About this RNA:
Rfam assigns this 86-nucleotide sequence from Eucalyptus grandis to the family "mir-160 microRNA precursor family". The base pairs follow the family's consensus structure, which was predicted with PFOLD.
RNA sequence: AUGUGCCUGGCUCCCUGUAUGCCAUUUGCGUAGCCCACCGGAGAACCGAUGGCCUGUGUGUAUGGCGUAUGAGGAGCCAUGCAUAU
Numbered sequence: 001a002u003g004u005g006c007c008u009g010g011c012u013c014c015c016u017g018u019a020u021g022c023c024a025u026u027u028g029c030g031u032a033g034c035c036c037a038c039c040g041g042a043g044a045a046c047c048g049a050u051g052g053c054c055u056g057u058g059u060g061u062a063u064g065g066c067g068u069a070u071g072a073g074g075a076g077c078c079a080u081g082c083a084u085a086u
Base pairs, nucleotide, nucleotide: 001086002085003084004083005082006081008079009078010077011076012075013074014073016071017070018069019068020067021066022065023064024063027060028059029058
Dot-bracket structure: ((((((.(((((((.(((((((((..(((............................)))..))))))))).))))))).))))))
NCBI's taxonomy places the organism under Eukaryota, Gunneridae, Myrtaceae, Myrtoideae, Eucalyptus. It scores 71 bits against the family's covariance model. A reference for the family is Rhoades et al. (2002), "Prediction of plant microRNA targets", Cell.